[Rfam]
Nucleotides: 129
Stems, first nucleotide, its partner, number of pairs: 003059005009053001011051001016046006023038002026035001070123003075118001083109005090102002
Number, partner (000 for none) and nucleotide at each position: 001000c002000c003059u004058c005057c006056c007055u008000g009053u010000c011051u012000a013000a014000c015000a016046c017045c018044a019043g020042g021041a022000a023038c024037u025000c026035u027000g028000u029000c030000a031000u032000u033000g034000u035026g036000c037024a038023g039000a040000g041021u042020c043019c044018u045017g046016g047000c048000u049000c050000a051011a052000c053009a054000a055007g056006g057005g058004g059003a060000c061000a062000g063000a064000c065000u066000a067000c068000u069000u070123u071122g072121c073000u074000c075118u076000c077000u078000u079000c080000c081000c082000u083109c084108c085107c086106u087105g088000c089000u090102g091101g092000g093000u094000g095000u096000u097000g098000u099000u100000c101091c102090c103000u104000c105087c106086a107085g108084g109083g110000c111000c112000u113000a114000a115000a116000g117000a118075g119000a120000u121072g122071c123070a124000a125000a126000c127000a128000a129000u
Shown here is a 129-nucleotide sequence from Myripristis murdjan, a member of the family "Small nucleolar RNA SNORA49".
Pairs were carried over by alignment from the consensus structure, which was predicted with RNAalifold.
Rfam describes the family as follows. The snoRNA ACA49 has no identified RNA target. NB genomic sequence 1-nt different from published.
Its family is annotated with nucleolus and RNA processing in the Gene Ontology.
It scores 53 bits against the family's covariance model.
Lineage of the source: Eukaryota > Deuterostomia > Gnathostomata > Euteleosteomorpha > Myripristis.